[Rfam]
RNA sequence: ACCAGAUGUGACACUUGAUAGUACAAUGAAUCUAGACAGUAAGCAUGUUUGGAUUCGUUGUACUAUAAAGUGUCUCGUCUGGU
Numbered sequence: 001a002c003c004a005g006a007u008g009u010g011a012c013a014c015u016u017g018a019u020a021g022u023a024c025a026a027u028g029a030a031u032c033u034a035g036a037c038a039g040u041a042a043g044c045a046u047g048u049u050u051g052g053a054u055u056c057g058u059u060g061u062a063c064u065a066u067a068a069a070g071u072g073u074c075u076c077g078u079c080u081g082g083u
Stems, first nucleotide, its partner, number of pairs: 001083008010074007018066021
MIR814 microRNA precursor family: an 83-nucleotide RNA sequence from Oryza sativa.
Taxonomically the source falls in Oryza sativa (Eukaryota, Euphyllophyta, Oryzoideae, Oryza).
The family's consensus secondary structure was predicted with RNAalifold.